mir-148/mir-152 microRNA precursor family: a 73-nucleotide sequence from Ameiurus melas. A search with the family's covariance model found it, with a score of 59 bits. The literature on the family includes a 2002 paper in Curr Biol by Lagos-Quintana et al., "Identification of tissue-specific microRNAs from mouse".
RNA sequence: CUCAGGAAAAGUUCUGUGGUCCACUCUGACCGUGUGAGUGUGUGGUCAGUGCAUUACAGAGCUUUUCUUUAAG
Numbered sequence: 001c002u003c004a005g006g007a008a009a010a011g012u013u014c015u016g017u018g019g020u021c022c023a024c025u026c027u028g029a030c031c032g033u034g035u036g037a038g039u040g041u042g043u044g045g046u047c048a049g050u051g052c053a054u055u056a057c058a059g060a061g062c063u064u065u066u067c068u069u070u071a072a073g
Stems, first nucleotide, its partner, number of pairs: 004069013022051004028047004
Dot-bracket structure: ...(((((((((((((.....((((..((((............)))))))).....)))))))))))))....